[Rfam]
RNA sequence: CGGUCAGCAGUUCACCGAGGCGUCGCCGUCCCUUAUGGGAAGCUAAACCUGCAC
Number, nucleotide and partner (000 for none) at each position: 001c017002g016003g015004u014005c000006a000007g000008c000009a000010g000011u000012u000013c000014a004015c003016c002017g001018a000019g000020g000021c000022g000023u000024c000025g000026c000027c000028g000029u040030c039031c038032c037033u000034u000035a000036u000037g032038g031039g030040a029041a000042g000043c000044u000045a000046a000047a000048c000049c000050u000051g000052c000053a000054c000
This 54-nucleotide RNA from Aliirhizobium cellulosilyticum belongs to the Rfam family "COG3860 RNA". The base pairs follow the family's consensus structure, which is taken from published work.